[Rfam]
RNA sequence: GCCACAUGAUGUGAAACAGAUUGCAAUAGCACACGUGCAAAGAUGACUUACUAUCUAUCACCCUAGACUGAUGGCU
Numbered sequence: 001g002c003c004a005c006a007u008g009a010u011g012u013g014a015a016a017c018a019g020a021u022u023g024c025a026a027u028a029g030c031a032c033a034c035g036u037g038c039a040a041a042g043a044u045g046a047c048u049u050a051c052u053a054u055c056u057a058u059c060a061c062c063c064u065a066g067a068c069u070g071a072u073g074g075c076u
Stems, first nucleotide, its partner, number of pairs: 001075004029038003
A member of the RNA family "Small nucleolar RNA SNORD83" from Astyanax mexicanus, 76 nucleotides long. Pairs were carried over by alignment from the consensus structure, which was predicted with PFOLD. The family's RNA type in Rfam is C/D-box small nucleolar RNA.